[Rfam]
Nucleotides: 060
Base pairs, nucleotide, nucleotide: 006054007053009051010050011049012048022043023042024041025040026039027038028037029036
Number, partner (000 for none) and nucleotide at each position: 001000g002000c003000u004000g005000c006054g007053g008000c009051c010050c011049g012048g013000g014000c015000c016000c017000c018000u019000c020000u021000g022043g023042c024041g025040a026039u027038c028037g029036u030000u031000c032000a033000g034000c035000g036029a037028c038027g039026a040025u041024c042023g043022u044000g045000a046000u047000g048012u049011c050010g051009g052000a053007c054006c055000g056000c057000a058000u059000c060000g